The record is a 73-nucleotide RNA from Nakamurella antarctica, which matches "tRNA" in Rfam. The match comes from Rfam's covariance-model search (58 bits).

RNA sequence: GCCUCCGUAGCUCAGGGGAUAGAGUAGGGCACUCCUAACGCUCUGGUCGCAGGUUCGAAUCCUGCCGGGGGCA
Numbered sequence: 001g002c003c004u005c006c007g008u009a010g011c012u013c014a015g016g017g018g019a020u021a022g023a024g025u026a027g028g029g030c031a032c033u034c035c036u037a038a039c040g041c042u043c044u045g046g047u048c049g050c051a052g053g054u055u056c057g058a059a060u061c062c063u064g065c066c067g068g069g070g071g072c073a
Stems, first nucleotide, its partner, number of pairs: 001072007010025004027043004049065005